Overview
A member of the RNA family "Small nucleolar RNA SNORA33" from Tupaia belangeri, 118 nucleotides long. By type it is an H/ACA-box small nucleolar RNA. Its family is annotated with RNA processing and nucleolus in the Gene Ontology. ACA33 is a member of the H/ACA class of snoRNA that guide the sites of modification of uridines to pseudouridines. The base pairs follow the family's consensus structure, which was predicted with PFOLD. Taxonomically the source falls in Tupaia belangeri (Eukaryota, Vertebrata, Euteleostomi, Eutheria). It scores 105 bits against the family's covariance model.

[Rfam]
Nucleotides: 118
Base pairs, nucleotide, nucleotide: 003061004060005059006058007057016043017042018041019040020039071111072110073109074108083100085098086097087096088095089094
Number, partner (000 for none) and nucleotide at each position: 001000a002000a003061g004060c005059c006058a007057g008000c009000c010000g011000a012000u013000g014000a015000a016043u017042c018041u019040g020039c021000u022000u023000u024000g025000c026000u027000g028000u029000a030000u031000g032000u033000a034000u035000u036000u037000c038000u039020g040019c041018a042017g043016g044000a045000a046000u047000u048000u049000a050000g051000a052000a053000a054000a055000a056000g057007c058006u059005g060004g061003c062000a063000a064000u065000a066000g067000u068000a069000a070000a071111g072110c073109c074108a075000u076000g077000u078000u079000a080000u081000g082000a083100g084000c085098c086097u087096u088095a089094a090000g091000u092000c093000a094089u095088u096087a097086a098085g099000u100083u101000c102000c103000a104000a105000a106000a107000a108074u109073g110072g111071c112000u113000a114000c115000a116000a117000c118000g